The record is an 83-nucleotide RNA sequence from Corchorus capsularis, which matches "Small nucleolar RNA SNORD24" in Rfam. By type it is a C/D-box small nucleolar RNA. On this family, see Qu et al., Nucleic Acids Res 1995: "U24, a novel intron-encoded small nucleolar RNA with two 12 nt long, phylogenetically conserved complementarities to 28S rRNA". Its family is annotated with nucleolus and RNA processing in the Gene Ontology. The organism belongs to Corchorus, within Eukaryota.

RNA sequence: GGCCGGUGAUGUUAGAAAAUAUUUGCUACUCUUGAUGGGAAACCCCAUCUGAUGAAUUUUUUUCCACCAAGAUCUCUGAGGCC
Number, nucleotide and partner (000 for none) at each position: 001g083002g082003c081004c080005g000006g000007u000008g000009a000010u000011g000012u000013u000014a000015g000016a000017a000018a000019a000020u000021a000022u000023u000024u000025g000026c000027u000028a000029c000030u000031c000032u000033u000034g000035a000036u000037g000038g000039g000040a000041a000042a000043c000044c000045c000046c000047a000048u000049c000050u000051g000052a000053u000054g000055a000056a000057u000058u000059u000060u000061u000062u000063u000064c000065c000066a000067c000068c000069a000070a000071g000072a000073u000074c000075u000076c000077u000078g000079a000080g004081g003082c002083c001